[Rfam]
Shown here is a 245-nucleotide RNA sequence from Ceuthmochares aereus, a member of the family "Small nucleolar RNA SNORD17".
RNA sequence: GUGAGGUGAUGACUAAGUUUAUCCAUUCCCUGAGUACAGUGUGCUGCCCUCCUGCAGCACCCUGAUUCCUGUUCUAGGGUCUGGGUGCUGUGCAACCUCCAGAGACCCUCCAGCUUCCCAGUGUCCUACUGGGGGCUGCUGUGGUGUGUGGGUGGCUGCCUGCAGGAGGAAGUGGUGCCAGCAGGGUUGGAGCUGCUCUUUUGGGGGCUCCAUCUCCACUGAGAUGAGGGAUAAUGUCUGAUCAC
Number, nucleotide and partner (000 for none) at each position: 001g000002u000003g000004a000005g000006g000007u000008g000009a000010u244011g243012a242013c000014u240015a000016a000017g237018u236019u000020u234021a000022u000023c230024c229025a000026u228027u227028c226029c000030c223031u222032g000033a000034g219035u218036a000037c000038a000039g000040u180041g179042u177043g176044c175045u174046g173047c172048c000049c169050u167051c166052c165053u164054g163055c162056a161057g000058c087059a086060c085061c084062c083063u000064g081065a000066u000067u079068c078069c077070u076071g000072u000073u000074c000075u000076a070077g069078g068079g067080u000081c064082u000083g062084g061085g060086u059087g058088c000089u000090g000091u000092g159093c158094a157095a000096c155097c154098u000099c000100c000101a000102g000103a000104g000105a145106c144107c000108c000109u000110c000111c138112a137113g136114c135115u134116u000117c133118c132119c131120a130121g129122u128123g127124u000125c000126c000127u123128a122129c121130u120131g119132g118133g117134g115135g114136c113137u112138g111139c000140u000141g000142u000143g000144g106145u105146g000147u000148g000149u000150g000151g000152g000153u000154g097155g096156c000157u094158g093159c092160c000161u056162g055163c054164a053165g052166g051167a050168g000169g049170a000171a000172g047173u046174g045175g044176u043177g042178c000179c041180a040181g000182c000183a000184g217185g216186g214187u000188u212189g211190g210191a209192g000193c207194u206195g000196c000197u000198c000199u000200u000201u000202u000203g000204g000205g000206g194207g193208c000209u191210c190211c189212a188213u000214c186215u000216c185217c184218a035219c034220u000221g000222a031223g030224a000225u000226g028227a027228g026229g024230g023231a000232u000233a000234a020235u000236g018237u017238c000239u000240g014241a000242u012243c011244a010245c000
Lineage of the source: Eukaryota > Bilateria > Sarcopterygii > Otidimorphae > Ceuthmochares. From the family's description: The snoRNA HBI-43 belongs to the C/D family of snoRNAs, guiding 2'O-ribose methylation at position U3797 of the 28S rRNA. Pseudouridylation in position U3797 is predicted to be guided by the H/ACA snoRNA ACA48. On this family, see Huttenhofer et al., EMBO J 2001: "RNomics: an experimental approach that identifies 201 candidates for novel, small, non-messenger RNAs in mouse". It scores 128 bits against the family's covariance model. It is annotated as a C/D-box small nucleolar RNA. Rfam links the family to the GO terms RNA processing and nucleolus.